The family of this 102-nucleotide sequence from Romboutsia lituseburensis is "Purine riboswitch aptamer". A search with the family's covariance model found it, with a score of 86 bits. Its family is annotated with purine nucleobase biosynthetic process in the Gene Ontology. The base pairs follow the family's consensus structure, which is taken from published work.
RNA sequence: GAAAUAAUUAAUAUAUUUACCUGUAUAUUUUUGAAAAUAAGGUUCAAAUGUUUCUACCAGGCUACCGUAAAUGGCUUGACUACAGGAGUUUAAAAAUAGUAU
Numbered sequence: 001g002a003a004a005u006a007a008u009u010a011a012u013a014u015a016u017u018u019a020c021c022u023g024u025a026u027a028u029u030u031u032u033g034a035a036a037a038u039a040a041g042g043u044u045c046a047a048a049u050g051u052u053u054c055u056a057c058c059a060g061g062c063u064a065c066c067g068u069a070a071a072u073g074g075c076u077u078g079a080c081u082a083c084a085g086g087a088g089u090u091u092a093a094a095a096a097u098a099g100u101a102u
Stems, first nucleotide, its partner, number of pairs: 018088001020086006030048006058078007